[Rfam]
RNA: c-di-GMP-I riboswitch aptamer
RNA sequence: CACAUAUAAAGGUAAACUUACCUAAAGGCGGGGGGCGCAAAGUUACGGGCUUAAGGUAAUAUUGAGAUUUGCUAUGGUAGCCGGGCUGCCGGA
Number, nucleotide and partner (000 for none) at each position: 001c000002a000003c000004a000005u000006a000007u000008a000009a000010a000011g000012g038013u037014a000015a000016a000017c032018u031019u030020a000021c028022c027023u000024a000025a000026a000027g022028g021029c000030g019031g018032g017033g000034g000035g000036c000037g013038c012039a000040a000041a087042g086043u085044u084045a000046c083047g082048g081049g078050c077051u076052u000053a000054a000055g000056g072057u071058a070059a069060u000061a000062u000063u000064g000065a000066g000067a000068u000069u059070u058071g057072c056073u000074a000075u000076g051077g050078u049079a000080g000081c048082c047083g046084g044085g043086c042087u041088g000089c000090c000091g000092g000093a000